Shown here is a 182-nucleotide sequence, a member of the family "malK-I RNA".

RNA sequence: UCCGGUGGAGUAUGCCUACUCCACAGAAAUAGGCAUACGACGCUAAAAUAAAGGAGGAAAACCCCGUCCGGCUCACGGUGCGGCAGUGUGGAGACCUGUCGUAAAGCUUCUGCUGUUUAACCCGGCAGAAUGCGAGUGCGCGUAUUGAGGAUUCAGCGCGCACGGAGUCAAAAAACAUGGCA
Numbered sequence: 001u002c003c004g005g006u007g008g009a010g011u012a013u014g015c016c017u018a019c020u021c022c023a024c025a026g027a028a029a030u031a032g033g034c035a036u037a038c039g040a041c042g043c044u045a046a047a048a049u050a051a052a053g054g055a056g057g058a059a060a061a062c063c064c065c066g067u068c069c070g071g072c073u074c075a076c077g078g079u080g081c082g083g084c085a086g087u088g089u090g091g092a093g094a095c096c097u098g099u100c101g102u103a104a105a106g107c108u109u110c111u112g113c114u115g116u117u118u119a120a121c122c123c124g125g126c127a128g129a130a131u132g133c134g135a136g137u138g139c140g141c142g143u144a145u146u147g148a149g150g151a152u153u154c155a156g157c158g159c160g161c162a163c164g165g166a167g168u169c170a171a172a173a174a175a176c177a178u179g180g181c182a
Stems, first nucleotide, its partner, number of pairs: 006042002010038009064078004070169005079103008088095002106133002108130006136163008146155003
Pairs were carried over by alignment from the consensus structure, which is taken from published work. The family's RNA type in Rfam is cis-regulatory element. It is one of the family's seed sequences.